[Rfam]
RNA: Small Cajal body specific RNA 6
RNA sequence: GUAAAAGGUCUGACUUCCGAGGUCGCCUCCCAGCAGCCUACAUCCCCAGCUGCUUACCUCUCUCCCAUCAUGCUCUAGUAGUGCUAUCAUGGGCAAACACAGUAGCUGACAUGCAGUGAUGUCUCCAUUCUGUCUUCCCUGACAAGUCCAGAGAAGGCACUGGGUUGGCAUCCAACAGCUUGGUCACAAGGGAUUUGGUUGUUGGGAGUGCUGGCGUCCUUGGCUAUGAUCUGACAUUUUAAGCUGAGA
Numbered sequence: 001g002u003a004a005a006a007g008g009u010c011u012g013a014c015u016u017c018c019g020a021g022g023u024c025g026c027c028u029c030c031c032a033g034c035a036g037c038c039u040a041c042a043u044c045c046c047c048a049g050c051u052g053c054u055u056a057c058c059u060c061u062c063u064c065c066c067a068u069c070a071u072g073c074u075c076u077a078g079u080a081g082u083g084c085u086a087u088c089a090u091g092g093g094c095a096a097a098c099a100c101a102g103u104a105g106c107u108g109a110c111a112u113g114c115a116g117u118g119a120u121g122u123c124u125c126c127a128u129u130c131u132g133u134c135u136u137c138c139c140u141g142a143c144a145a146g147u148c149c150a151g152a153g154a155a156g157g158c159a160c161u162g163g164g165u166u167g168g169c170a171u172c173c174a175a176c177a178g179c180u181u182g183g184u185c186a187c188a189a190g191g192g193a194u195u196u197g198g199u200u201g202u203u204g205g206g207a208g209u210g211c212u213g214g215c216g217u218c219c220u221u222g223g224c225u226a227u228g229a230u231c232u233g234a235c236a237u238u239u240u241a242a243g244c245u246g247a248g249a
Base pairs, nucleotide, nucleotide: 020232021231022230023229024228027208028207029206030205031204032203033202034201043193044192045191046190047108048107049106050105051104052103053102064093065092066091067090068089070087071086072085073083116173118172119171120170121169122168123167131159132158133157134156135155136154137153139151140150141149